The family of this 447-nucleotide part of an RNA from Halalkaliarchaeum desulfuricum is "Archaeal large subunit ribosomal RNA". The source organism's lineage runs through Archaea, Methanobacteriati, Halobacteria, Haloferacaceae and Halalkaliarchaeum. It scores 2717 bits against the family's covariance model. Pairs were carried over by alignment from the consensus structure, which is taken from published work.
RNA sequence: CCGACCGAAACAUGUCGAAGCAUGACCUCCGUCGAGGUAGCUCGUGGGGUAGAGCGACCGAUUGGAUGACCCGCCACCGAGAGGUGUCGGCCAUCCUGUCGAACUCCGAACCUACGGGCGCCGUGGACGCGGGGAGUCCGGUGUGCGGGGUAAGCCUGUGCACCGUAAGGGAGACAACCCAGCGCUAGGUUAAGGACCCAAAAUGUGGACUAAGUGCGAUCGAAGGUGGUCUCGAGCCCCAGACAGCCGGGAGGUGAGCUUAGAAGCAGCUACCCUCCAAGAAAAGCGUAACAGCUUACCGGCCGAGGUUCGAGGCGCCGAAAAUGAUCGGGGCUCAAGUCCACUUGCGAGACCUGGCGGCACCCAUAGUGGUGAUCCAGUAGGUCGGCGUCGCGAUCGGGUGGAAGUACGGACGAGGGUUCGUAUGGACCGGUCGGGAACGAAAAU
Dot-bracket structure: ((((((....(((((....))))).(((((((...(((.((((((((....(((.....(((.(((((....(.((((....)))).)...))))).)))...)).)....)))))))))))......)))))).)...(((((((((.......)))))))))....(((......)))...(((((((...(.(......(.((((((..............(((.((((((((((.......(((((.(((..(((.........)))..)))(...)(...((......)).).)))))...)))))))))))))...................)))))))).)...)))))))((((((......))))..))....))))))(.((.(((((((......((((((((....))))))))...))))))).))..).....
Numbered sequence: 001c002c003g004a005c006c007g008a009a010a011c012a013u014g015u016c017g018a019a020g021c022a023u024g025a026c027c028u029c030c031g032u033c034g035a036g037g038u039a040g041c042u043c044g045u046g047g048g049g050u051a052g053a054g055c056g057a058c059c060g061a062u063u064g065g066a067u068g069a070c071c072c073g074c075c076a077c078c079g080a081g082a083g084g085u086g087u088c089g090g091c092c093a094u095c096c097u098g099u100c101g102a103a104c105u106c107c108g109a110a111c112c113u114a115c116g117g118g119c120g121c122c123g124u125g126g127a128c129g130c131g132g133g134g135a136g137u138c139c140g141g142u143g144u145g146c147g148g149g150g151u152a153a154g155c156c157u158g159u160g161c162a163c164c165g166u167a168a169g170g171g172a173g174a175c176a177a178c179c180c181a182g183c184g185c186u187a188g189g190u191u192a193a194g195g196a197c198c199c200a201a202a203a204u205g206u207g208g209a210c211u212a213a214g215u216g217c218g219a220u221c222g223a224a225g226g227u228g229g230u231c232u233c234g235a236g237c238c239c240c241a242g243a244c245a246g247c248c249g250g251g252a253g254g255u256g257a258g259c260u261u262a263g264a265a266g267c268a269g270c271u272a273c274c275c276u277c278c279a280a281g282a283a284a285a286g287c288g289u290a291a292c293a294g295c296u297u298a299c300c301g302g303c304c305g306a307g308g309u310u311c312g313a314g315g316c317g318c319c320g321a322a323a324a325u326g327a328u329c330g331g332g333g334c335u336c337a338a339g340u341c342c343a344c345u346u347g348c349g350a351g352a353c354c355u356g357g358c359g360g361c362a363c364c365c366a367u368a369g370u371g372g373u374g375a376u377c378c379a380g381u382a383g384g385u386c387g388g389c390g391u392c393g394c395g396a397u398c399g400g401g402u403g404g405a406a407g408u409a410c411g412g413a414c415g416a417g418g419g420u421u422c423g424u425a426u427g428g429a430c431c432g433g434u435c436g437g438g439a440a441c442g443a444a445a446a447u
Stems, first nucleotide, its partner, number of pairs: 001388006011024005026136001027134006036122003040119008052107001053105002060100003064096005073088001075086004140164009169180003184358007194348001196346001203345001205344006225319003229316010246303005252276003257271003277281001282297001286295002359378002361374004389442001391439002394436007407426008